Notes: A member of the RNA family "U5 spliceosomal RNA" from Puccinia graminis, 114 nucleotides long. About the family: U5 RNA is a component of both types of known spliceosome. The precise function of this molecule is unknown, though it is known that the 5' loop is required for splice site selection and p220 binding, and that both the 3' stem-loop and the Sm site are important for Sm protein binding and cap methylation. Rfam's curators put it in the seed alignment. It is annotated as a spliceosomal small nuclear RNA. Taxonomically the source falls in Puccinia graminis f. sp. tritici (Eukaryota, Pucciniomycetes, Pucciniales, Puccinia). Pairs were carried over by alignment from the consensus structure, which is taken from published work.
RNA sequence: CAUGCUCUGUUUGGUCUCAUAUUCGAACGUCCCCCUCGCCUUUUACUAGGGAGACCCGGGGACCAGGCAGGUCAAAGCAUGCCCACAAUCUUUCGUGACCACCCUCAGGUGGGA
Numbered sequence: 001c002a003u004g005c006u007c008u009g010u011u012u013g014g015u016c017u018c019a020u021a022u023u024c025g026a027a028c029g030u031c032c033c034c035c036u037c038g039c040c041u042u043u044u045a046c047u048a049g050g051g052a053g054a055c056c057c058g059g060g061g062a063c064c065a066g067g068c069a070g071g072u073c074a075a076a077g078c079a080u081g082c083c084c085a086c087a088a089u090c091u092u093u094c095g096u097g098a099c100c101a102c103c104c105u106c107a108g109g110u111g112g113g114a
Base pairs, nucleotide, nucleotide: 003079004078005077006076008069009068010067011066012065013064014063015062016061017060018059029055030054031053033051034050035049036048096114099112100111101110102109103108